Small nucleolar RNA Z162: an 89-nucleotide sequence from Zizania palustris. The match comes from Rfam's covariance-model search (71 bits). Taxonomically the source falls in Zizania (Eukaryota, Tracheophyta, Euphyllophyta, Mesangiospermae).
[Rfam]
RNA sequence: GAUAGCACUGUGAGGAACUAAUUUUGCUAAUAUAUCUACGAGGUUGUAAGGUCGAUGACUCAAAAUGUAUUUUUCAUUCUGAGUGUCUC
Numbered sequence: 001g002a003u004a005g006c007a008c009u010g011u012g013a014g015g016a017a018c019u020a021a022u023u024u025u026g027c028u029a030a031u032a033u034a035u036c037u038a039c040g041a042g043g044u045u046g047u048a049a050g051g052u053c054g055a056u057g058a059c060u061c062a063a064a065a066u067g068u069a070u071u072u073u074u075c076a077u078u079c080u081g082a083g084u085g086u087c088u089c
Base pairs, nucleotide, nucleotide: 005086006085007084008083010077011076012075013074014073043052044051045050